[Rfam]
RNA: chrB-a RNA
RNA sequence: GGUAUGGGGACACCGCGAUCGCCCCGUGAGGCCCCGGCCCAAGCAUCGCAUCCUGAUACGGUUUUCAAGGAUGCUGAAAUAUG
Numbered sequence: 001g002g003u004a005u006g007g008g009g010a011c012a013c014c015g016c017g018a019u020c021g022c023c024c025c026g027u028g029a030g031g032c033c034c035c036g037g038c039c040c041a042a043g044c045a046u047c048g049c050a051u052c053c054u055g056a057u058a059c060g061g062u063u064u065u066c067a068a069g070g071a072u073g074c075u076g077a078a079a080u081a082u083g
Stems, first nucleotide, its partner, number of pairs: 005026005048074006